[Rfam]
RNA sequence: CCAAAACUAGCCACUUGUCUUUUUUUAAUUGGUAGUGUUAAAAUUUUUUAAGAACCAAUUAGAAAAUGACAAGUGGCUAGUUUUGC
Dot-bracket structure: .((((((((((((((((((.(((((((((((((....................))))))))))))).)))))))))))))))))).

The record is an 86-nucleotide RNA from Prunus armeniaca, which matches "MIR6288 microRNA precursor family" in Rfam. Its family is annotated with miRNA-mediated post-transcriptional gene silencing and RISC complex in the Gene Ontology. Pairs were carried over by alignment from the consensus structure, which was predicted with RNAalifold. The organism belongs to Prunus, within Eukaryota. Rfam 15.1 lists 293 matches to the family in 9 species.